[Rfam]
TPP riboswitch aptamer (THI element): a 113-nucleotide RNA from Actinophytocola algeriensis. Rfam describes the family as follows. Vitamin B(1) in its active form thiamin pyrophosphate (TPP) is an essential coenzyme that is synthesised by coupling of pyrimidine and thiazole moieties in bacteria. The source organism's lineage runs through Bacteria, Actinomycetota, Actinomycetes, Pseudonocardiaceae and Actinophytocola.
Nucleotides: 113
Stems, first nucleotide, its partner, number of pairs: 006101002010097001011063004017034005041057007069094004075088004
Number, partner (000 for none) and nucleotide at each position: 001000u002000c003000a004000g005000a006101u007100c008000a009000a010097c011063a012062c013061g014060g015000g016000a017034g018033u019032c020031c021030g022000g023000u024000g025000u026000g027000c028000g029000c030021c031020g032019g033018g034017c035000u036000g037000a038000g039000a040000g041057g042056a043055g044054g045053g046052c047051u048000c049000g050000c051047a052046g053045c054044c055043c056042u057041c058000g059000a060014c061013c062012g063011u064000u065000c066000g067000a068000a069094c070093c071092u072091g073000a074000u075088c076087c077086g078085g079000g080000u081000c082000a083000u084000g085078c086077c087076g088075g089000u090000g091072c092071a093070g094069g095000g096000a097010g098000g099000a100007g101006g102000c103000g104000u105000c106000u107000u108000g109000c110000g111000g112000u113000u